[Rfam]
RNA: Small nucleolar RNA snoR100
Organism: Pyrus ussuriensis x Pyrus communis
RNA sequence: GAAUGAAGAAAGCAUGGUUAUGUGCACGGAAAUUGAAUUGCAAAGGGUCCGCAUGUCUGCCCUCUCUGAAUUUCUCUGAUUUGAGGGCCUGGUUACGACCCAAAUUA
Numbered sequence: 001g002a003a004u005g006a007a008g009a010a011a012g013c014a015u016g017g018u019u020a021u022g023u024g025c026a027c028g029g030a031a032a033u034u035g036a037a038u039u040g041c042a043a044a045g046g047g048u049c050c051g052c053a054u055g056u057c058u059g060c061c062c063u064c065u066c067u068g069a070a071u072u073u074c075u076c077u078g079a080u081u082u083g084a085g086g087g088c089c090u091g092g093u094u095a096c097g098a099c100c101c102a103a104a105u106u107a
Stems, first nucleotide, its partner, number of pairs: 012025004045090005055080003059074001